Source information: The family of this 44-nucleotide RNA from Pectobacterium brasiliense is "nuoG RNA". The organism belongs to Pectobacterium brasiliense, within Bacteria.
RNA sequence: GAAUUUUUGAUUAGCGCUCGUGGUAACACGGGCCAUUAUGGAAG
Numbered sequence: 001g002a003a004u005u006u007u008u009g010a011u012u013a014g015c016g017c018u019c020g021u022g023g024u025a026a027c028a029c030g031g032g033c034c035a036u037u038a039u040g041g042a043a044g
Stems, first nucleotide, its partner, number of pairs: 016033007